[Rfam]
RNA sequence: CCACCGGUGGUGAAACGGAAUCAUGCUUGCCUUCCAUCCAAUGGAAUAUCAUCUUCCGCAAGCGGCACGGGUUCGACUCCCGUCCGGUGUA
Dot-bracket structure: .((((((..((((.......)))).(((((...........................)))))....(((((.......)))))))))))..

Shown here is a 91-nucleotide RNA from Mycena kentingensis, a member of the family "tRNA". NCBI's taxonomy places the organism under Eukaryota, Fungi, Agaricomycotina, Agaricales, Mycena. From the family's description: Transfer RNA (tRNA) molecules are approximately 80 nucleotides in length. It is annotated as a transfer RNA. A search with the family's covariance model found it, with a score of 46 bits. Rfam links the family to the GO term triplet codon-amino acid adaptor activity.